[Rfam]
Annotation: The family of this 68-nucleotide RNA sequence from Leptolyngbya iicbica is "Glutamine riboswitch aptamer (glnA leader)".
RNA sequence: AUCGUUCAUCCGACCAGCGCAUCUGGACAGGACGGAAGUAAGAGAUAUCUUCUCUGAAGGAACGCGCC
Dot-bracket structure: ..(((((.(((..................)))..[.....(((((.....)))))....)))))]...
For this family Rfam cites "Bacterial aptamers that selectively bind glutamine" (Ames and Breaker, RNA Biol, 2011).